[Rfam]
RNA sequence: GUCCAGGUGCUAUGCAAGAAAUUGCUGCCGAACCCCGUCAGAUUCGGAAGAAAGCAGCGGUAGGCGGAUAAUUUCUGUGCCGUAGAUUACCUGGGCUCU
Numbered sequence: 001g002u003c004c005a006g007g008u009g010c011u012a013u014g015c016a017a018g019a020a021a022u023u024g025c026u027g028c029c030g031a032a033c034c035c036c037g038u039c040a041g042a043u044u045c046g047g048a049a050g051a052a053a054g055c056a057g058c059g060g061u062a063g064g065c066g067g068a069u070a071a072u073u074u075c076u077g078u079g080c081c082g083u084a085g086a087u088u089a090c091c092u093g094g095g096c097u098c099u
Stems, first nucleotide, its partner, number of pairs: 004093005010085005015077001017076006025067005035060004043052003

Shown here is a 99-nucleotide RNA sequence from Treponema brennaborense, a member of the family "Bacterial small signal recognition particle RNA". A search with the family's covariance model found it, with a score of 72 bits. It is annotated as a non-coding RNA gene. Pairs were carried over by alignment from the consensus structure, which is taken from published work.